The record is a 109-nucleotide sequence, which matches "DUF3577 RNA" in Rfam. It is annotated as a cis-regulatory element. The base pairs follow the family's consensus structure, which is taken from published work.

RNA sequence: CGUAUCGGAGAAGCGCAGGAAACUGCGCGAAACUCGCCUGCAAUCCCGGCAUCAUCACACCAGUGAUGUGGCGACUUUUUCAACUGGCUGCUGCUGCGGCAGCGAUUAU
Numbered sequence: 001c002g003u004a005u006c007g008g009a010g011a012a013g014c015g016c017a018g019g020a021a022a023c024u025g026c027g028c029g030a031a032a033c034u035c036g037c038c039u040g041c042a043a044u045c046c047c048g049g050c051a052u053c054a055u056c057a058c059a060c061c062a063g064u065g066a067u068g069u070g071g072c073g074a075c076u077u078u079u080u081c082a083a084c085u086g087g088c089u090g091c092u093g094c095u096g097c098g099g100c101a102g103c104g105a106u107u108a109u
Base pairs, nucleotide, nucleotide: 013028014027015026016025017024018023034074035073036072037071038070053068054067055066056065057064058063085104087103088102089101090100091099